[Rfam]
RNA sequence: CACUCAUCGAACGGCGAUCUCCUCCUCCCAAAGCCGUUGGAUAUGGAUCGGCAACACUCCUCCUCCCAGUUGUCGAUCAAGUUUAUAAAGCCCGACGGAUCUCCUCCCCCGUCGGGCUUUUCAU
Numbered sequence: 001c002a003c004u005c006a007u008c009g010a011a012c013g014g015c016g017a018u019c020u021c022c023u024c025c026u027c028c029c030a031a032a033g034c035c036g037u038u039g040g041a042u043a044u045g046g047a048u049c050g051g052c053a054a055c056a057c058u059c060c061u062c063c064u065c066c067c068a069g070u071u072g073u074c075g076a077u078c079a080a081g082u083u084u085a086u087a088a089a090g091c092c093c094g095a096c097g098g099a100u101c102u103c104c105u106c107c108c109c110c111g112u113c114g115g116g117c118u119u120u121u122c123a124u
Base pairs, nucleotide, nucleotide: 007041008040011037012036013035014034015033046078047077048076049075050074051073052072053071054070055069088119089118090117091116092115093114094113095112096111097110098109